[Rfam]
RNA sequence: CACGUCAGCGCGGUAUGCUGACAUGGCAACGAAUCGCGCCCUCUAUGACGUGAUUUGUUGCCACGUCAACAAAGCGCACUGACGUGG
Numbered sequence: 001c002a003c004g005u006c007a008g009c010g011c012g013g014u015a016u017g018c019u020g021a022c023a024u025g026g027c028a029a030c031g032a033a034u035c036g037c038g039c040c041c042u043c044u045a046u047g048a049c050g051u052g053a054u055u056u057g058u059u060g061c062c063a064c065g066u067c068a069a070c071a072a073a074g075c076g077c078a079c080u081g082a083c084g085u086g087g
Stems, first nucleotide, its partner, number of pairs: 001086008010077003014073001016071002019068003024063015040047001

The record is an 87-nucleotide RNA sequence from Gossypium mustelinum, which matches "MIR7486 microRNA precursor family" in Rfam. Rfam links the family to the GO terms miRNA-mediated post-transcriptional gene silencing and RISC complex. The source organism's lineage runs through Eukaryota, Embryophyta, Mesangiospermae, Malvoideae and Gossypium. The family's consensus secondary structure was predicted with RNAalifold.